[Rfam]
RNA: Small nucleolar RNA SNORD16
Organism: Cottoperca gobio
Nucleotides: 101
Stems, first nucleotide, its partner, number of pairs: 001101003021082004031071004039064002041057005
Number, partner (000 for none) and nucleotide at each position: 001101u002100g003099c004000c005000a006000u007000g008000a009000u010000g011000g012000u013000g014000u015000a016000a017000u018000u019000u020000g021082c022081g023080u024079c025000u026000g027000a028000g029000c030000c031071u032070g033069u034068g035000a036000a037000c038000a039064g040063u041057g042056a043055c044054g045053g046000u047000u048000g049000c050000c051000u052000g053045c054044u055043g056042u057041c058000a059000u060000u061000a062000a063040g064039c065000u066000g067000u068034c069033a070032u071031a072000a073000g074000g075000u076000a077000u078000u079024g080023a081022u082021g083000u084000g085000u086000a087000a088000a089000a090000u091000a092000a093000u094000u095000c096000u097000g098000a099003g100002c101001a